Shown here is a 130-nucleotide sequence from Alkalibacterium pelagium, a member of the family "Ribosomal protein L10 leader". The family's RNA type in Rfam is cis-regulatory leader. Rfam's curators write: This family is a putative r-protein leader autoregulatory structure found in B. subtilis and other low-GC Gram-positive bacteria. The base pairs follow the family's consensus structure, which was predicted with CMfinder. It scores 66 bits against the family's covariance model. Its family is annotated with regulation of gene expression in the Gene Ontology.
[Rfam]
RNA sequence: CUGAAUGACUGGAUAAUACCGAAGACAGUAUGUGGCUCUGGCCUUAAUAUCAUACCGAGGAUAAAGUGAUGAACAGUCAAUUUACACUCCCUCUAUGUCUACGGUGACAUGGGGUUUUUUUAUACGCUUC
Numbered sequence: 001c002u003g004a005a006u007g008a009c010u011g012g013a014u015a016a017u018a019c020c021g022a023a024g025a026c027a028g029u030a031u032g033u034g035g036c037u038c039u040g041g042c043c044u045u046a047a048u049a050u051c052a053u054a055c056c057g058a059g060g061a062u063a064a065a066g067u068g069a070u071g072a073a074c075a076g077u078c079a080a081u082u083u084a085c086a087c088u089c090c091c092u093c094u095a096u097g098u099c100u101a102c103g104g105u106g107a108c109a110u111g112g113g114g115u116u117u118u119u120u121u122a123u124a125c126g127c128u129u130c
Stems, first nucleotide, its partner, number of pairs: 028055005034043003091114009